Rfam assigns this 57-nucleotide sequence from Streptomyces boncukensis to the family "L17-Actino-Proteobacteria ribosomal protein leader". By type it is a cis-regulatory leader. The match comes from Rfam's covariance-model search (44 bits). The source organism's lineage runs through Bacteria, Actinomycetota, Actinomycetes, Streptomycetaceae and Streptomyces. A reference for the family is Eckert and Weinberg (2020), "Discovery of 20 novel ribosomal leader candidates in bacteria and archaea", BMC Microbiol. The family's consensus secondary structure is taken from published work.

[Rfam]
RNA sequence: GUGCGCCCCGCCAGGGGCGCACCCCCACAUCCCCGGUACCUGACACGGCCGGGACUG
Numbered sequence: 001g002u003g004c005g006c007c008c009c010g011c012c013a014g015g016g017g018c019g020c021a022c023c024c025c026c027a028c029a030u031c032c033c034c035g036g037u038a039c040c041u042g043a044c045a046c047g048g049c050c051g052g053g054a055c056u057g
Base pairs, nucleotide, nucleotide: 001022002021003020004019005018006017007016008015009014026057027056032053033052034051035050036049037048